[Rfam]
RNA sequence: GAGGGCGAACACGGGAGUCCGGUGAGCCGGGCUGAGAGGAAGCUUCUCCAAGCUUCGACCGUCGAACCUGAUCUGGAUCAUGCCAGCGCAGGGAGGCAGUUUCUCUCCGGG
Numbered sequence: 001g002a003g004g005g006c007g008a009a010c011a012c013g014g015g016a017g018u019c020c021g022g023u024g025a026g027c028c029g030g031g032c033u034g035a036g037a038g039g040a041a042g043c044u045u046c047u048c049c050a051a052g053c054u055u056c057g058a059c060c061g062u063c064g065a066a067c068c069u070g071a072u073c074u075g076g077a078u079c080a081u082g083c084c085a086g087c088g089c090a091g092g093g094a095g096g097c098a099g100u101u102u103c104u105c106u107c108c109g110g111g
Stems, first nucleotide, its partner, number of pairs: 006099001010095001011062004017032005039056007067092004073086004

TPP riboswitch aptamer (THI element): a 111-nucleotide RNA from Lacisediminihabitans profunda. Vitamin B(1) in its active form thiamin pyrophosphate (TPP) is an essential coenzyme that is synthesised by coupling of pyrimidine and thiazole moieties in bacteria. Taxonomically the source falls in Lacisediminihabitans (Bacteria, Bacillati, Actinomycetes, Microbacteriaceae).